[Rfam]
RNA sequence: CUAUACUAUUCCUGAUUUUUCUCUCAUUCAUAGAGAAUGGA
Numbered sequence: 001c002u003a004u005a006c007u008a009u010u011c012c013u014g015a016u017u018u019u020u021c022u023c024u025c026a027u028u029c030a031u032a033g034a035g036a037a038u039g040g041a
Base pairs, nucleotide, nucleotide: 006040007039008038009037010036011035
Rfam assigns this 41-nucleotide RNA from Papaver somniferum to the family "Plastid-rpoB 5UTR RNA". Rfam 15.1 lists 102 matches to the family in 69 species. By type it is a cis-regulatory element. The family's consensus secondary structure was predicted with LocARNA. From the family's description: Plastid rpoB is a non-coding RNA (ncRNA) recognised in plastids. It was found in the 5 prime untranslated region (5UTR) of a chloroplast-encoded RNA polymerase subunit (rpoB) in plastids, suggesting a posible cis-regulatory function.